[Rfam]
This 59-nucleotide sequence from Canis lupus belongs to the Rfam family "mir-500 microRNA precursor family". Pairs were carried over by alignment from the consensus structure, which was predicted with RNAalifold. NCBI's taxonomy places the organism under Eukaryota, Eumetazoa, Deuterostomia, Craniata, Canis lupus. Rfam's curators put it in the seed alignment. Its family is annotated with miRNA-mediated post-transcriptional gene silencing and RISC complex in the Gene Ontology. For this family Rfam cites "The expression profile of microRNAs in mouse embryos" (Mineno et al., Nucleic Acids Res, 2006).

RNA sequence: AAUCCUUGCUAUCUGGGUGCUAGUGCUGUCUCAAUGCAAUGCACCUGGGCAAGGAUUCA
Number, nucleotide and partner (000 for none) at each position: 001a057002a056003u055004c054005c053006u052007u051008g000009c000010u000011a000012u049013c048014u047015g046016g045017g044018u043019g042020c000021u000022a000023g000024u038025g037026c036027u000028g000029u000030c000031u000032c000033a000034a000035u000036g026037c025038a024039a000040u000041g000042c019043a018044c017045c016046u015047g014048g013049g012050c000051a007052a006053g005054g004055a003056u002057u001058c000059a000